[Rfam]
RNA sequence: ACCCUCCCUAUCCCUUUCCCAUCAGAUCCAAUUACUGAUCUCAUGGUCAAAAAGGAGGGAAAGUAAAACAGAAGCUGGUCCUAUCAUCUUUGCUGGGGUGAAUGCAGCACUGAACUGGGCUAGCUUGAAACAGAG
Numbered sequence: 001a002c003c004c005u006c007c008c009u010a011u012c013c014c015u016u017u018c019c020c021a022u023c024a025g026a027u028c029c030a031a032u033u034a035c036u037g038a039u040c041u042c043a044u045g046g047u048c049a050a051a052a053a054g055g056a057g058g059g060a061a062a063g064u065a066a067a068a069c070a071g072a073a074g075c076u077g078g079u080c081c082u083a084u085c086a087u088c089u090u091u092g093c094u095g096g097g098g099u100g101a102a103u104g105c106a107g108c109a110c111u112g113a114a115c116u117g118g119g120c121u122a123g124c125u126u127g128a129a130a131c132a133g134a135g
Base pairs, nucleotide, nucleotide: 003058004057005056006055007054019046020045021044022043025040026039027038028037075123076122077121078120079119080118081117